[Rfam]
RNA sequence: GCCGGGGGUUGUGGCGUGCCUCUGUAAUCCAGCUACUUGGAGGCUUGUACUAGCGGACGGGUUGAGAUUGGGAGUCCUGUCUCAUGUUGACUCAUGUUGAUCGGGUGUCCGCGCUAAGCUGGGCGUCGAUAUGGUGACCCCGGGGGAACCCGGCGGUGACCAGGUCGCCUAAGGAGGAGCGAACCGGCCCAGGGCGGAAACGCAGCAGGCAAAAGCUCCCGCGCUUUGCAGUAGUGGGAUCGCACCCGUGAAUGAGUGGCAUGGGGUAGCCCAGUCGAUACAUUCGGACCUAGUACUUU
Dot-bracket structure: (((((((((........))))))....(((........))))))..(((((((....(((((...(((((((....(((((((((((((.(((((.(....(((((((((.(((((.((.((((((((((.((((.((((((((....))))).))).)))).))))((...)).(((((......(((....(((....)))....)))....))))).)))))).))..)))))))...))))))).).))))))))))))))))))))))))).....)))))...)))))))...
RNA: Metazoan signal recognition particle RNA
Organism: Rhipicephalus microplus